Rfam assigns this 96-nucleotide RNA from Thioalkalivibrio thiocyanoxidans to the family "t44 RNA". Rfam's curators put it in the seed alignment. Rfam classes the family as a small RNA. NCBI's taxonomy places the organism under Bacteria, Pseudomonadati, Gammaproteobacteria, Chromatiales, Thioalkalivibrio thiocyanoxidans.
RNA sequence: CAACGAAAACCCUAAAUCCACACACGUAUCGGCACGGUCUGUCGGGUGCCCGCCCUUCGCGGUCGGGUUUCAGGCCGGGAUACGUGGAGGCUCAAC
Numbered sequence: 001c002a003a004c005g006a007a008a009a010c011c012c013u014a015a016a017u018c019c020a021c022a023c024a025c026g027u028a029u030c031g032g033c034a035c036g037g038u039c040u041g042u043c044g045g046g047u048g049c050c051c052g053c054c055c056u057u058c059g060c061g062g063u064c065g066g067g068u069u070u071c072a073g074g075c076c077g078g079g080a081u082a083c084g085u086g087g088a089g090g091c092u093c094a095a096c
Base pairs, nucleotide, nucleotide: 023086024085025084026083027082028081029080030079035077036076037075038074039073040072041071048068049067050066051065052064